[Rfam]
RNA sequence: GCCUCGUGGCCUGCUCUCCACUAUUUGAAAUGAGUUACAUCUUGGAGGUGAGGAUGUGCCUCCUGGU
Number, nucleotide and partner (000 for none) at each position: 001g000002c066003c065004u000005c000006g062007u000008g060009g059010c058011c000012u000013g000014c000015u054016c053017u052018c000019c050020a049021c048022u047023a000024u046025u045026u044027g043028a042029a000030a040031u039032g038033a000034g000035u000036u000037a000038c032039a031040u030041c000042u028043u027044g026045g025046a024047g022048g021049u020050g019051a000052g017053g016054a015055u000056g000057u000058g010059c009060c008061u000062c006063c000064u000065g003066g002067u000
Shown here is a 67-nucleotide RNA from Sciurus vulgaris, a member of the family "mir-1204 microRNA precursor family". It scores 76 bits against the family's covariance model. Rfam links the family to the GO terms miRNA-mediated post-transcriptional gene silencing and RISC complex. Taxonomically the source falls in Sciurus (Eukaryota, Deuterostomia, Chordata, Eutheria).